This 101-nucleotide RNA from Daucus carota belongs to the Rfam family "Small nucleolar RNA Z161/Z228". On this family, see Chen et al., Nucleic Acids Res 2003: "The high diversity of snoRNAs in plants: identification and comparative study of 120 snoRNA genes from Oryza sativa". It scores 46 bits against the family's covariance model. Rfam classes the family as a C/D-box small nucleolar RNA. The organism belongs to Daucus carota, within Eukaryota.

RNA sequence: AAGUCAAGUGAUGAUAUGGAUGUCAAAUUCUCACGACGGUCGUCUGAAGAGGCACUUUUGUAGUGUCCCACUGACUGAAUUUCAUAUCCAUUCUGAUGAUU
Number, nucleotide and partner (000 for none) at each position: 001a101002a100003g000004u098005c000006a000007a000008g000009u000010g000011a000012u000013g000014a000015u000016a000017u000018g000019g000020a000021u000022g000023u000024c000025a000026a000027a000028u000029u000030c000031u000032c000033a000034c000035g000036a000037c000038g000039g000040u000041c000042g000043u000044c000045u000046g000047a000048a000049g000050a000051g000052g000053c065054a064055c063056u000057u000058u000059u000060g000061u000062a000063g055064u054065g053066u000067c000068c000069c000070a000071c000072u000073g000074a000075c000076u000077g000078a000079a000080u000081u000082u000083c000084a000085u000086a000087u000088c000089c000090a000091u000092u000093c000094u000095g000096a000097u000098g004099a000100u002101u001